[Rfam]
RNA sequence: UUCUUAUCGAGAGAAACUGAGGGACAGGCCCAAUGACGUUUCGGCAGCAGAUUCAGAAUGAAAACUGUGCCAAUUCCUGCAAGCAAUUUAUGCUUGAAAGAUGAGAA
Numbered sequence: 001u002u003c004u005u006a007u008c009g010a011g012a013g014a015a016a017c018u019g020a021g022g023g024a025c026a027g028g029c030c031c032a033a034u035g036a037c038g039u040u041u042c043g044g045c046a047g048c049a050g051a052u053u054c055a056g057a058a059u060g061a062a063a064a065c066u067g068u069g070c071c072a073a074u075u076c077c078u079g080c081a082a083g084c085a086a087u088u089u090a091u092g093c094u095u096g097a098a099a100g101a102u103g104a105g106a107a
Base pairs, nucleotide, nucleotide: 001107002106003105004104005103006102007101008100013042014041015040016039017038021031022030023029025079026078027077028076043071044070045069046068048067049066052062053061054060075099080096081095082094083093084092085091

Background: SAM riboswitch aptamer (S box leader): a 107-nucleotide RNA from Psychrobacillus sp. FJAT-21963. The organism belongs to Psychrobacillus, within Bacteria.